[Rfam]
RNA sequence: GGUCAUGAGUGCCAGUGCAAAGCCCCGGCUAGCUGGUCGGCAACCCUCCUCCGCGGUGGGGUGCUCCGGGUGACGACCCGGCCGUAUCCCGACUUGGGAACGGCAAGCGCGGACA
Numbered sequence: 001g002g003u004c005a006u007g008a009g010u011g012c013c014a015g016u017g018c019a020a021a022g023c024c025c026c027g028g029c030u031a032g033c034u035g036g037u038c039g040g041c042a043a044c045c046c047u048c049c050u051c052c053g054c055g056g057u058g059g060g061g062u063g064c065u066c067c068g069g070g071u072g073a074c075g076a077c078c079c080g081g082c083c084g085u086a087u088c089c090c091g092a093c094u095u096g097g098g099a100a101c102g103g104c105a106a107g108c109g110c111g112g113a114c115a
Base pairs, nucleotide, nucleotide: 001078002077003076004075009038011037012036013035014034015033016032021030022029039065040064041063044061045060046059048056049055081104082103083102084101085100087098088097089096
SAM (S-adenosyl methionine) riboswitch aptamer: a 115-nucleotide RNA sequence from Nocardia huaxiensis. A search with the family's covariance model found it, with a score of 107 bits. The family's consensus secondary structure is taken from published work. NCBI's taxonomy places the organism under Bacteria, Bacillati, Actinomycetes, Mycobacteriales, Nocardia.